[Rfam]
This 99-nucleotide RNA from Eubacterium sp. CAG:603 belongs to the Rfam family "ZMP/ZTP riboswitch aptamer (pfl RNA motif)". A search with the family's covariance model found it, with a score of 54 bits. The base pairs follow the family's consensus structure, which is taken from published work. Rfam links the family to the GO terms one-carbon metabolic process and regulation of purine nucleotide biosynthetic process.
RNA sequence: UUAUAGAUACAUGACUGACGGAAAUGCAUAUUUAUUGCAGGUAGAAUUAACUACAGGAAAUGUAUCUGGCUAUUUUGGUCGACCGUCUGGGCAAUUUUU
Numbered sequence: 001u002u003a004u005a006g007a008u009a010c011a012u013g014a015c016u017g018a019c020g021g022a023a024a025u026g027c028a029u030a031u032u033u034a035u036u037g038c039a040g041g042u043a044g045a046a047u048u049a050a051c052u053a054c055a056g057g058a059a060a061u062g063u064a065u066c067u068g069g070c071u072a073u074u075u076u077g078g079u080c081g082a083c084c085g086u087c088u089g090g091g092c093a094a095u096u097u098u099u
Stems, first nucleotide, its partner, number of pairs: 004068009015057002017087005041054004076094001078092003